[Rfam]
Annotation
Shown here is a 96-nucleotide RNA from Flavihumibacter petaseus, a member of the family "TPP riboswitch aptamer (THI element)". The match comes from Rfam's covariance-model search (58 bits).
RNA sequence: UUUCCUCAAUUGGGGUGGUUUCUUCGGAAAUCUGAGAACAUACCCAAAUCACCUGAUCUGGAUAAUGCCAGCGUAGGAAAAGGAAACUUCGAGGGC
Numbered sequence: 001u002u003u004c005c006u007c008a009a010u011u012g013g014g015g016u017g018g019u020u021u022c023u024u025c026g027g028a029a030a031u032c033u034g035a036g037a038a039c040a041u042a043c044c045c046a047a048a049u050c051a052c053c054u055g056a057u058c059u060g061g062a063u064a065a066u067g068c069c070a071g072c073g074u075a076g077g078a079a080a081a082g083g084a085a086a087c088u089u090c091g092a093g094g095g096c
Base pairs, nucleotide, nucleotide: 006084007083010080011046012045013044014043016040017032018031019030020029021028052077053076054075055074058071059070060069061068